Shown here is a 69-nucleotide RNA from Kryptolebias marmoratus, a member of the family "Small nucleolar RNA SNORD47". NCBI's taxonomy places the organism under Eukaryota, Eumetazoa, Neopterygii, Eurypterygia, Kryptolebias. The literature on the family includes a 2002 paper in Mol Cell Biol by Galardi et al., "Purified box C/D snoRNPs are able to reproduce site-specific 2'-O-methylation of target RNA in vitro".
RNA sequence: AAUCAGUGAUGAAAAGAUUCUGCCAAAUGAUCUCUGAUUAUAACCCACCGUUCCAUCUUGUCUGAGGUU
Numbered sequence: 001a002a003u004c005a006g007u008g009a010u011g012a013a014a015a016g017a018u019u020c021u022g023c024c025a026a027a028u029g030a031u032c033u034c035u036g037a038u039u040a041u042a043a044c045c046c047a048c049c050g051u052u053c054c055a056u057c058u059u060g061u062c063u064g065a066g067g068u069u
Base pairs, nucleotide, nucleotide: 001069002068003067004066